RNA: Pestivirus 3' UTR SLIV and SLII bovine viral diarrhea virus (BVDV-1)
RNA sequence: AAACAAAAAUGUAUAUAUAUUGUAAAUACACUGAUACAUGUACAUAAUGUAAAAAUUUAGUUGAGAUUAGUAGUGAUACAGAGACAUCUACCUCAGGCUGACACUACACUCAAUGCACACAGCACUUU
Numbered sequence: 001a002a003a004c005a006a007a008a009a010u011g012u013a014u015a016u017a018u019a020u021u022g023u024a025a026a027u028a029c030a031c032u033g034a035u036a037c038a039u040g041u042a043c044a045u046a047a048u049g050u051a052a053a054a055a056u057u058u059a060g061u062u063g064a065g066a067u068u069a070g071u072a073g074u075g076a077u078a079c080a081g082a083g084a085c086a087u088c089u090a091c092c093u094c095a096g097g098c099u100g101a102c103a104c105u106a107c108a109c110u111c112a113a114u115g116c117a118c119a120c121a122g123c124a125c126u127u128u
Base pairs, nucleotide, nucleotide: 009045010044011043012042013041014040015039016038060114061113062112063111064110065109068106069105070104071103073102074101088097089096